[Rfam]
RNA sequence: UUGCAGAUGGUGUUCACAGGGAAACCUUUGAAGCCGUGGGGCUGGUCUGCGCAAUGCCAGACCCUCGCCAUAUUGCAA
Numbered sequence: 001u002u003g004c005a006g007a008u009g010g011u012g013u014u015c016a017c018a019g020g021g022a023a024a025c026c027u028u029u030g031a032a033g034c035c036g037u038g039g040g041g042c043u044g045g046u047c048u049g050c051g052c053a054a055u056g057c058c059a060g061a062c063c064c065u066c067g068c069c070a071u072a073u074u075g076c077a078a
Stems, first nucleotide, its partner, number of pairs: 001078006007071006013032004018027002038065004042060004